[Rfam]
RNA sequence: AAGUGCUCACGGGGUCGGUGGAAAUCCGAACCGGCGGUCAGAGUCCGCGAACCGCAGCGCGACGUCGAGGUGACGCGCGCGGCGGCCGAGCCGGUGGAAUCCCGGCGCCGACAGUCACAGUCUGGAUGGGAGUCAGCGCUU
Numbered sequence: 001a002a003g004u005g006c007u008c009a010c011g012g013g014g015u016c017g018g019u020g021g022a023a024a025u026c027c028g029a030a031c032c033g034g035c036g037g038u039c040a041g042a043g044u045c046c047g048c049g050a051a052c053c054g055c056a057g058c059g060c061g062a063c064g065u066c067g068a069g070g071u072g073a074c075g076c077g078c079g080c081g082g083c084g085g086c087c088g089a090g091c092c093g094g095u096g097g098a099a100u101c102c103c104g105g106c107g108c109c110g111a112c113a114g115u116c117a118c119a120g121u122c123u124g125g126a127u128g129g130g131a132g133u134c135a136g137c138g139c140u141u
Stems, first nucleotide, its partner, number of pairs: 003139005009133002016028003030121002032110002034048004043108002052085004090106005112124003
This 141-nucleotide RNA sequence from Pseudoclavibacter caeni belongs to the Rfam family "FMN riboswitch aptamer (RFN element)". Lineage of the source: Bacteria > Bacillati > Micrococcales > Microbacteriaceae > Pseudoclavibacter. A search with the family's covariance model found it, with a score of 87 bits.